The family of this 168-nucleotide RNA sequence from Evansella caseinilytica is "c-di-AMP riboswitch aptamer (ydaO/yuaA leader)". NCBI's taxonomy places the organism under Bacteria, Bacillati, Bacillota, Caryophanales, Evansella. Gene Ontology terms of the family: cyclic-di-AMP binding and regulation of gene expression. It scores 79 bits against the family's covariance model.
RNA sequence: AAAAGGAGCUCACCAUUUGAACAUCCUCUUUAGAAGCGGGGGACCCAAGAUUGUUGGAGAACGAACAGCCGUUUUCCUGGGGUGAAUCGAGUGAUGACAGUCAUUCGUAGGGCAACUCUUACUGUCCGAAUCCGACAGCUAACCUCGUAGGCGUUGAAGGGACAUUGU
Numbered sequence: 001a002a003a004a005g006g007a008g009c010u011c012a013c014c015a016u017u018u019g020a021a022c023a024u025c026c027u028c029u030u031u032a033g034a035a036g037c038g039g040g041g042g043a044c045c046c047a048a049g050a051u052u053g054u055u056g057g058a059g060a061a062c063g064a065a066c067a068g069c070c071g072u073u074u075u076c077c078u079g080g081g082g083u084g085a086a087u088c089g090a091g092u093g094a095u096g097a098c099a100g101u102c103a104u105u106c107g108u109a110g111g112g113c114a115a116c117u118c119u120u121a122c123u124g125u126c127c128g129a130a131u132c133c134g135a136c137a138g139c140u141a142a143c144c145u146c147g148u149a150g151g152c153g154u155u156g157a158a159g160g161g162a163c164a165u166u167g168u
Stems, first nucleotide, its partner, number of pairs: 036148006046079002080133003088107006110127004